[Rfam]
RNA sequence: AAUCAUAUGGUGGGGGCAAGAUUCCAGAAGAUUAUUGAAGCACUCCCAGAAUUCAUAGAGAGUCUCGGAUUCAUCCUGAACAAUCAUGGAAAUAUCUUUCCUUAGUUU
Numbered sequence: 001a002a003u004c005a006u007a008u009g010g011u012g013g014g015g016g017c018a019a020g021a022u023u024c025c026a027g028a029a030g031a032u033u034a035u036u037g038a039a040g041c042a043c044u045c046c047c048a049g050a051a052u053u054c055a056u057a058g059a060g061a062g063u064c065u066c067g068g069a070u071u072c073a074u075c076c077u078g079a080a081c082a083a084u085c086a087u088g089g090a091a092a093u094a095u096c097u098u099u100c101c102u103u104a105g106u107u108u
Stems, first nucleotide, its partner, number of pairs: 001108001004105001005103001007102001058075002

The record is a 108-nucleotide RNA from Arachis hypogaea, which matches "Plant small nucleolar RNA R71" in Rfam. A search with the family's covariance model found it, with a score of 41 bits. Lineage of the source: Eukaryota > Spermatophyta > rosids > Fabales > Arachis. On this family, see Brown et al., Trends Plant Sci 2003: "Plant snoRNAs: functional evolution and new modes of gene expression". The family's consensus secondary structure was predicted with PFOLD. It is annotated as a C/D-box small nucleolar RNA.